[Rfam]
This 426-nucleotide RNA from Antarctobacter albus belongs to the Rfam family "Bacterial RNase P class A". A search with the family's covariance model found it, with a score of 276 bits. The family's consensus secondary structure is taken from published work. The family's RNA type in Rfam is ribozyme. Taxonomically the source falls in Antarctobacter (Bacteria, Pseudomonadati, Pseudomonadota, Rhodobacterales).

RNA sequence: GCGGAAGGCCGGACGGCCGCUUGCCAUUGGCGAGAGGAAAGUCCGGACUCACCGAAGCACCGGUGCCGGGUAACGCCCGGGCAGGGCAACCUGACGGAAAGCGCCACAGAAAUGAAACCGCCGUCGCACCGGAGGUGCGCACCGGAAGUCCGCUUCUGGUGAAACCGAAGGAGACUGUGGCGGUAAGGGUGAAACGGUGGGGUAAGAGCCCACCGGGGGGCUGGCAACAGCGCCCGCAUGGCAAGCCCCACCGGGAGCAAUGCCGAAUAGGGAUCGUGCGCGCCCUCGGGCGCAGGGCCGCUUCGGCCCCGGCGAUCCGGGUUGGCAGCUAGAGCCGCGUGGCAACGCGCGGUCCAGAGGAAUGGUCGUCUGAGGGCGGGGAAACCCGCCCAAGAACAGAAUCCGGCUUACAGGCCUUCCGCGCAU
Numbered sequence: 001g002c003g004g005a006a007g008g009c010c011g012g013a014c015g016g017c018c019g020c021u022u023g024c025c026a027u028u029g030g031c032g033a034g035a036g037g038a039a040a041g042u043c044c045g046g047a048c049u050c051a052c053c054g055a056a057g058c059a060c061c062g063g064u065g066c067c068g069g070g071u072a073a074c075g076c077c078c079g080g081g082c083a084g085g086g087c088a089a090c091c092u093g094a095c096g097g098a099a100a101g102c103g104c105c106a107c108a109g110a111a112a113u114g115a116a117a118c119c120g121c122c123g124u125c126g127c128a129c130c131g132g133a134g135g136u137g138c139g140c141a142c143c144g145g146a147a148g149u150c151c152g153c154u155u156c157u158g159g160u161g162a163a164a165c166c167g168a169a170g171g172a173g174a175c176u177g178u179g180g181c182g183g184u185a186a187g188g189g190u191g192a193a194a195c196g197g198u199g200g201g202g203u204a205a206g207a208g209c210c211c212a213c214c215g216g217g218g219g220g221c222u223g224g225c226a227a228c229a230g231c232g233c234c235c236g237c238a239u240g241g242c243a244a245g246c247c248c249c250a251c252c253g254g255g256a257g258c259a260a261u262g263c264c265g266a267a268u269a270g271g272g273a274u275c276g277u278g279c280g281c282g283c284c285c286u287c288g289g290g291c292g293c294a295g296g297g298c299c300g301c302u303u304c305g306g307c308c309c310c311g312g313c314g315a316u317c318c319g320g321g322u323u324g325g326c327a328g329c330u331a332g333a334g335c336c337g338c339g340u341g342g343c344a345a346c347g348c349g350c351g352g353u354c355c356a357g358a359g360g361a362a363u364g365g366u367c368g369u370c371u372g373a374g375g376g377c378g379g380g381g382a383a384a385c386c387c388g389c390c391c392a393a394g395a396a397c398a399g400a401a402u403c404c405g406g407c408u409u410a411c412a413g414g415c416c417u418u419c420c421g422c423g424c425a426u
Base pairs, nucleotide, nucleotide: 001422002421003420004419005418006417007416008415009414010413011411012370013369014368015367016366017365018364020034021033022032023031024030025029039409040408041407043406044405045404046403047402048257049256050255056303057302061253062252063251064250065249066080067079068078069077070076081095082093083092084091085090096248097247101246102245103242104241105240118188119187120184121183122182123181124180125179126178127177128176196214197213198212199211200210201209215237216235217234218233220231221230222229223228261327262326263325264324271318272317273316274315275314276313295309296308297307298306299305334353335352336351337350338349339348340347341346